[Rfam]
RNA sequence: AUGUAUCUUACACGUUUGCUGUUCGAGUUACAUACGAGUGUCAUUUAUGAUCACUCAUUAUAUCGAUUUAAAUUUGUUUUCAAAUUUAUCAGAUACUCGAGGGAAAGUCCCCGAACCCAGGAAUAGCAACUAUUCGAUCUUUCAUAUAAGAUCUAUCAUGUUUAUAUGCUGAACACUAUAGAUAAUAUUAUUUACCAAGAUGAGAUUUAUCUCAGAGUUAAUAAAUUUAUCUGUGUUUAGUGAAUGUGAUAUCGUUGUAAAUAAAGUUAUGCAAACAGUCUAUGGAAACAUAGACUUACACGAGGGGUGCUUAUGAGUAAGGUACA
Numbered sequence: 001a002u003g004u005a006u007c008u009u010a011c012a013c014g015u016u017u018g019c020u021g022u023u024c025g026a027g028u029u030a031c032a033u034a035c036g037a038g039u040g041u042c043a044u045u046u047a048u049g050a051u052c053a054c055u056c057a058u059u060a061u062a063u064c065g066a067u068u069u070a071a072a073u074u075u076g077u078u079u080u081c082a083a084a085u086u087u088a089u090c091a092g093a094u095a096c097u098c099g100a101g102g103g104a105a106a107g108u109c110c111c112c113g114a115a116c117c118c119a120g121g122a123a124u125a126g127c128a129a130c131u132a133u134u135c136g137a138u139c140u141u142u143c144a145u146a147u148a149a150g151a152u153c154u155a156u157c158a159u160g161u162u163u164a165u166a167u168g169c170u171g172a173a174c175a176c177u178a179u180a181g182a183u184a185a186u187a188u189u190a191u192u193u194a195c196c197a198a199g200a201u202g203a204g205a206u207u208u209a210u211c212u213c214a215g216a217g218u219u220a221a222u223a224a225a226u227u228u229a230u231c232u233g234u235g236u237u238u239a240g241u242g243a244a245u246g247u248g249a250u251a252u253c254g255u256u257g258u259a260a261a262u263a264a265a266g267u268u269a270u271g272c273a274a275a276c277a278g279u280c281u282a283u284g285g286a287a288a289c290a291u292a293g294a295c296u297u298a299c300a301c302g303a304g305g306g307g308u309g310c311u312u313a314u315g316a317g318u319a320a321g322g323u324a325c326a
Stems, first nucleotide, its partner, number of pairs: 002326010014276006022101007037080002105312003109309001110307003122134004172237003179233006189225001191223001192220001194218002202213004278295006
This 326-nucleotide RNA from Adineta steineri belongs to the Rfam family "RNase MRP". Its family is annotated with ribonuclease MRP activity, rRNA processing and ribonuclease MRP complex in the Gene Ontology. Pairs were carried over by alignment from the consensus structure, which is taken from published work. The organism belongs to Adineta, within Eukaryota.